[Rfam]
RNA sequence: GUAGGCUACGGAGACAUGGUACCGACCACUAUUGGAGGAAAAAUUGUGGGCUCUCUCUGUGCAAUUGCUGGUGUGCUGACUAUUGCCUUGCCCGUGCCUGUCAUUGUAUCAAAU
Numbered sequence: 001g002u003a004g005g006c007u008a009c010g011g012a013g014a015c016a017u018g019g020u021a022c023c024g025a026c027c028a029c030u031a032u033u034g035g036a037g038g039a040a041a042a043a044u045u046g047u048g049g050g051c052u053c054u055c056u057c058u059g060u061g062c063a064a065u066u067g068c069u070g071g072u073g074u075g076c077u078g079a080c081u082a083u084u085g086c087c088u089u090g091c092c093c094g095u096g097c098c099u100g101u102c103a104u105u106g107u108a109u110c111a112a113a114u
Base pairs, nucleotide, nucleotide: 001114002113005110007108008107009106010105011104013102014101015100016099018097021095022094037077038076040074050062051061